[Rfam]
RNA sequence: GCACAUGUAUCCAUCUCAAUCUAUGUGUGUUGAAGUGGGUUGUGGUAAAACUUAGUUUAAAUUCUACCUCCACCCACUUCAACAUACGGAUUGAGGUGGAUACAUGG
Numbered sequence: 001g002c003a004c005a006u007g008u009a010u011c012c013a014u015c016u017c018a019a020u021c022u023a024u025g026u027g028u029g030u031u032g033a034a035g036u037g038g039g040u041u042g043u044g045g046u047a048a049a050a051c052u053u054a055g056u057u058u059a060a061a062u063u064c065u066a067c068c069u070c071c072a073c074c075c076a077c078u079u080c081a082a083c084a085u086a087c088g089g090a091u092u093g094a095g096g097u098g099g100a101u102a103c104a105u106g107g
Stems, first nucleotide, its partner, number of pairs: 004106011016094007025087008035077006042070001045067003
Rfam assigns this 107-nucleotide RNA from Miscanthus lutarioriparius to the family "MIR5565 microRNA precursor family". The family's consensus secondary structure was predicted with RNAalifold. NCBI's taxonomy places the organism under Eukaryota, Viridiplantae, Euphyllophyta, commelinids, Miscanthus. A search with the family's covariance model found it, with a score of 81 bits.